[Rfam]
RNA sequence: GCUGAGUCACCGCCUAAUCAGCAGUCGAGUGGGCAGCUCGAUCGCUGAACCGGGGACCCAGGUUACUGGGGUGAAUCCUCUUCGGUCGCAAGGUCGAUGGGGUAGGGCCGAAUCUUCCCGGUCCGAACCCGUCAGCUAACCCGGUCGGCGCGUGGGCAAGGAAGA
Numbered sequence: 001g002c003u004g005a006g007u008c009a010c011c012g013c014c015u016a017a018u019c020a021g022c023a024g025u026c027g028a029g030u031g032g033g034c035a036g037c038u039c040g041a042u043c044g045c046u047g048a049a050c051c052g053g054g055g056a057c058c059c060a061g062g063u064u065a066c067u068g069g070g071g072u073g074a075a076u077c078c079u080c081u082u083c084g085g086u087c088g089c090a091a092g093g094u095c096g097a098u099g100g101g102g103u104a105g106g107g108c109c110g111a112a113u114c115u116u117c118c119c120g121g122u123c124c125g126a127a128c129c130c131g132u133c134a135g136c137u138a139a140c141c142c143g144g145u146c147g148g149c150g151c152g153u154g155g156g157c158a159a160g161g162a163a164g165a
Stems, first nucleotide, its partner, number of pairs: 011150004018048005049145006059068002069130003077102004105124004
The family of this 165-nucleotide RNA from Nocardia cerradoensis is "c-di-AMP riboswitch aptamer (ydaO/yuaA leader)". Rfam links the family to the GO terms cyclic-di-AMP binding and regulation of gene expression. The match comes from Rfam's covariance-model search (82 bits). A reference for the family is Barrick et al. (2004), "New RNA motifs suggest an expanded scope for riboswitches in bacterial genetic control", Proc Natl Acad Sci U S A. The source organism's lineage runs through Bacteria, Actinomycetota, Actinomycetes, Mycobacteriales and Nocardia.